[Rfam]
RNA sequence: CUGGUCGGGCUAUAGCCAAUCCACAAUUAUGGCAUACUCCGGCUAAAUAAGGAGGAAAUAUCAACAUCCGCAGGACUUGCGGUGCGGCACUGUGGAGACGUGUCGUAAUGCGGCAGCCAUGCCCGGCCGCCGUGAGGGAGCGCAUUGCGAAUGCAGCGCUGUCAGAGUCAGAAAAGUAUGGCA
Numbered sequence: 001c002u003g004g005u006c007g008g009g010c011u012a013u014a015g016c017c018a019a020u021c022c023a024c025a026a027u028u029a030u031g032g033c034a035u036a037c038u039c040c041g042g043c044u045a046a047a048u049a050a051g052g053a054g055g056a057a058a059u060a061u062c063a064a065c066a067u068c069c070g071c072a073g074g075a076c077u078u079g080c081g082g083u084g085c086g087g088c089a090c091u092g093u094g095g096a097g098a099c100g101u102g103u104c105g106u107a108a109u110g111c112g113g114c115a116g117c118c119a120u121g122c123c124c125g126g127c128c129g130c131c132g133u134g135a136g137g138g139a140g141c142g143c144a145u146u147g148c149g150a151a152u153g154c155a156g157c158g159c160u161g162u163c164a165g166a167g168u169c170a171g172a173a174a175a176g177u178a179u180g181g182c183a
Stems, first nucleotide, its partner, number of pairs: 006041004011036003015033004068082004074169005083107008092099002110133005116127003136163002139160005146155003
The family of this 183-nucleotide RNA from Firmicutes bacterium CAG:170 is "malK-I RNA".
Pairs were carried over by alignment from the consensus structure, which is taken from published work.
The sequence is in the family's curated seed alignment.
The family's RNA type in Rfam is cis-regulatory element.